[Rfam]
RNA sequence: ACCUGUAUCGAAAGUGAUCAUGGUAACCUUGUAGCCAGGUCAUCGAUAGUACAGGAAGAGCAACCAGAGAGCUUUUCCCGUGUUUGUGGGACUGUUCCCAUCAAACCCUGGCGCUCUCAUACA
Dot-bracket structure: .(((((((.....((((((..(((.........))).)))))).....)))))))..........(((((((.........((((((((((....))))).)))))......)))))).)...
Numbered sequence: 001a002c003c004u005g006u007a008u009c010g011a012a013a014g015u016g017a018u019c020a021u022g023g024u025a026a027c028c029u030u031g032u033a034g035c036c037a038g039g040u041c042a043u044c045g046a047u048a049g050u051a052c053a054g055g056a057a058g059a060g061c062a063a064c065c066a067g068a069g070a071g072c073u074u075u076u077c078c079c080g081u082g083u084u085u086g087u088g089g090g091a092c093u094g095u096u097c098c099c100a101u102c103a104a105a106c107c108c109u110g111g112c113g114c115u116c117u118c119a120u121a122c123a
Stems, first nucleotide, its partner, number of pairs: 002055007014043006022036003066120001067118006082106005087100005
Shown here is a 123-nucleotide RNA sequence from Tetraodon nigroviridis, a member of the family "Small nucleolar RNA SNORA71". Rfam classes the family as an H/ACA-box small nucleolar RNA. From the family's description: The members of this family belong to the H/ACA class of snoRNAs which bind a number of proteins (including dyskerin, Gar1p and Nop10p) to form snoRNP complexes. This class of snoRNAs are thought to guide the sites of modification of uridines to pseudouridines by forming direct base pairing interactions with substrate RNAs. This family includes U71 (SNORA71), ACA39 (SNORA39) and ACA60 (SNORA60). U71 and ACA60 are predicted to guide the pseudouridylation of U406 and U1004 in 18S rRNA respectively. There is currently no target RNA identified for ACA39.